[Rfam]
Rfam assigns this 168-nucleotide sequence from Streptomyces somaliensis to the family "c-di-AMP riboswitch aptamer (ydaO/yuaA leader)".
The base pairs follow the family's consensus structure.
The organism belongs to Streptomyces somaliensis, within Bacteria.
RNA sequence: ACGCUUCCAGCGCCGCAGGCAGGAGCGGGGGAACCAAGGUAGGCGCCGGGCCCGGCCGUCGGGAGACGACCGGAACCGGCUCGGGGUGAAGCCGCGCCCAGUGCGCGGCCGGGCACUCACCAGUCCCGAACCCGACAGCUCACCUCGCAGGCGUCGGUGAGGAGAUCC
Numbered sequence: 001a002c003g004c005u006u007c008c009a010g011c012g013c014c015g016c017a018g019g020c021a022g023g024a025g026c027g028g029g030g031g032a033a034c035c036a037a038g039g040u041a042g043g044c045g046c047c048g049g050g051c052c053c054g055g056c057c058g059u060c061g062g063g064a065g066a067c068g069a070c071c072g073g074a075a076c077c078g079g080c081u082c083g084g085g086g087u088g089a090a091g092c093c094g095c096g097c098c099c100a101g102u103g104c105g106c107g108g109c110c111g112g113g114c115a116c117u118c119a120c121c122a123g124u125c126c127c128g129a130a131c132c133c134g135a136c137a138g139c140u141c142a143c144c145u146c147g148c149a150g151g152c153g154u155c156g157g158u159g160a161g162g163a164g165a166u167c168c
Stems, first nucleotide, its partner, number of pairs: 002153004006024003025148006035083001084133003092108004111127003